[Rfam]
RNA sequence: AUAAGUGAAUAACUCCGAGCUAUUAUUCCUAACGAAAAAAAAUCAAUGGAAUCAUAGCCUAUAGGGUAUUUGGGGAAACCUGAAUGCCUCCCAGUGUGGAAAGGAGGGUGAAAUAACUAGAC
Numbered sequence: 001a002u003a004a005g006u007g008a009a010u011a012a013c014u015c016c017g018a019g020c021u022a023u024u025a026u027u028c029c030u031a032a033c034g035a036a037a038a039a040a041a042a043u044c045a046a047u048g049g050a051a052u053c054a055u056a057g058c059c060u061a062u063a064g065g066g067u068a069u070u071u072g073g074g075g076a077a078a079c080c081u082g083a084a085u086g087c088c089u090c091c092c093a094g095u096g097u098g099g100a101a102a103g104g105a106g107g108g109u110g111a112a113a114u115a116a117c118u119a120g121a122c
Stems, first nucleotide, its partner, number of pairs: 006113001013106004019058005025052005034044002064089011090099002

This 122-nucleotide RNA from Alkaliphilus serpentinus belongs to the Rfam family "Molybdenum/Tungsten riboswitch aptamer (Moco RNA motif)". Gene Ontology terms of the family: regulation of gene expression, tungstate binding and molybdenum ion binding. Taxonomically the source falls in Alkaliphilus (Bacteria, Bacillati, Peptostreptococcales, Natronincolaceae).